Shown here is a 91-nucleotide sequence from Seleniivibrio woodruffii, a member of the family "TPP riboswitch aptamer (THI element)". A search with the family's covariance model found it, with a score of 73 bits. The organism belongs to Seleniivibrio, within Bacteria.
RNA sequence: UGAAAACCGUGGGGGUGCCCUAUGAGGCUGAGAUAUACCCCUAAGACCUGAUUCGGGUAAUGCCGACGUAGGGAACGGACAUUAAGCAAGG
Numbered sequence: 001u002g003a004a005a006a007c008c009g010u011g012g013g014g015g016u017g018c019c020c021u022a023u024g025a026g027g028c029u030g031a032g033a034u035a036u037a038c039c040c041c042u043a044a045g046a047c048c049u050g051a052u053u054c055g056g057g058u059a060a061u062g063c064c065g066a067c068g069u070a071g072g073g074a075a076c077g078g079a080c081a082u083u084a085a086g087c088a089a090g091g
Base pairs, nucleotide, nucleotide: 007078008077009076010075011041012040013039014038016035017028018027019026047072048071049070050069053066054065055064056063